[Rfam]
RNA: Bacterial RNase P class A
Nucleotides: 404
Stems, first nucleotide, its partner, number of pairs: 001400010011389001012359007020048007053387003057384005062245004070289002073286001075241005080094005095109001096107004110236002115234002117230003132176001134172003139167002184202005203225001204223004210217002249316004259307006284290001323342008
Number, partner (000 for none) and nucleotide at each position: 001400c002399c003398a004397g005396u006395c007394g008393g009392c010391u011389g012359g013358a014357c015356g016355g017354c018353c019000g020048c021047g022046g023045c024044u025043g026042c027000u028000a029000u030000g031000c032000u033000c034000g035000a036000a037000a038000g039000g040000g041000u042026g043025c044024a045023g046022u047021c048020g049000a050000g051000g052000a053387a054386a055385g056000u057384c058383c059382g060381g061380g062245c063244u064243c065242c066000a067000c068000g069000c070289g071288g072000a073286u074000a075241c076240g077239g078238c079237g080094g081093c082092g083091g084090g085000u086000a087000a088000c089000g090084c091083c092082c093081g094080c095109c096107g097106g098105a099104a100000g101000c102000a103000a104099u105098u106097c107096u108000a109095g110236g111235g112000a113000u114000a115234g116233c117230g118229c119228c120000a121000c122000a123000g124000a125000g126000a127000a128000u129000a130000g131000u132176c133000u134172g135171c136170c137000g138000a139167c140166c141000c142000c143000g144000g145000u146000u147000c148000c149000g150000g151000g152000a153000g154000u155000u156000u157000c158000u159000g160000g161000g162000a163000u164000u165000u166140g167139g168000g169000a170136g171135g172134c173000g174000a175000u176132g177000g178000u179000g180000a181000a182000a183000c184202g185201g186200u187199g188198g189000a190000g191000u192000a193000a194000g195000a196000g197000c198188c199187c200186a201185c202184c203225g204223c205222c206221g207220c208000g209000a210217c211216c212000g213000u214000a215000a216211g217210g218000a219000a220207g221206c222205g223204g224000g225203c226000a227000c228119g229118g230117c231000a232000a233116g234115c235111c236110c237079c238078g239077c240076c241075g242065g243064g244063a245062g246000c247000a248000a249316g250315a251314c252313c253000g254000a255000a256000u257000a258000g259307g260306g261305a262304u263303g264302c265000g266000a267000u268000g269000g270000c271000g272000c273000c274000g275000c276000a277000a278000g279000g280000c281000g282000u283000a284290c285000g286073g287000c288071c289070c290284g291000u292000c293000c294000g295000u296000g297000g298000g299000a300000g301000c302264g303263c304262a305261u306260c307259c308000g309000g310000g311000u312000a313252g314251g315250u316249c317000g318000c319000g320000a321000g322000a323342a324341c325340c326339a327338u328337g329336c330335g331000g332000c333000g334000a335330c336329g337328c338327a339326u340325g341324g342323u343000c344000c345000a346000g347000a348000g349000g350000a351000a352000u353018g354017g355016u356015c357014g358013u359012c360000a361000c362000c363000u364000c365000g366000c367000a368000a369000g370000a371000g372000g373000a374000a375000c376000a377000g378000a379000a380061c381060c382059c383058g384057g385055c386054u387053u388000a389011c390000a391010g392009g393008c394007c395006g396005a397004c398003u399002g400001g401000c402000a403000u404000u